[Rfam]
The family of this 66-nucleotide RNA sequence from Tetraodon nigroviridis is "mir-148/mir-152 microRNA precursor family". Rfam links the family to the GO terms RISC complex and miRNA-mediated post-transcriptional gene silencing. Rfam 15.1 lists 1,272 matches to the family in 609 species.

RNA sequence: AAAUAAAGUUCUGUGAUACACUUCGACUCUGAUUCCUCGCAGUCAGUGCAUUACAGAACUUUGUUU
Numbered sequence: 001a002a003a004u005a006a007a008g009u010u011c012u013g014u015g016a017u018a019c020a021c022u023u024c025g026a027c028u029c030u031g032a033u034u035c036c037u038c039g040c041a042g043u044c045a046g047u048g049c050a051u052u053a054c055a056g057a058a059c060u061u062u063g064u065u066u
Base pairs, nucleotide, nucleotide: 001066002065003064004063005062006061007060008059009058010057011056012055013054019048020047021046022045025044026043027042028041